A member of the RNA family "Small nucleolar RNA snR60/Z15/Z230/Z193/J17" from Cudoniella acicularis, 106 nucleotides long. Rfam classes the family as a C/D-box small nucleolar RNA. NCBI's taxonomy places the organism under Eukaryota, Fungi, Dikarya, leotiomyceta, Cudoniella.
[Rfam]
RNA sequence: CCUUGCAUUCUGAUGAUUUGAACACAUGCAUAGUUCAUCUGAGGCCUUCGGGCCCAUGAACGAAAUAAAUUCAUCAAUGUCUUUCGCUCCUAUCUGAUUUGCACUC
Dot-bracket structure: ...((((............................................................................................))))...